[Rfam]
RNA sequence: UUGUUUUUUUAGGUUUUGAUUUUUAUGGCUUUAGACAAGAAAAUCAGAGCCUAAAGAAAAUA
Numbered sequence: 001u002u003g004u005u006u007u008u009u010u011a012g013g014u015u016u017u018g019a020u021u022u023u024u025a026u027g028g029c030u031u032u033a034g035a036c037a038a039g040a041a042a043a044u045c046a047g048a049g050c051c052u053a054a055a056g057a058a059a060a061u062a
Stems, first nucleotide, its partner, number of pairs: 004059021
RNA: mir-737 microRNA precursor family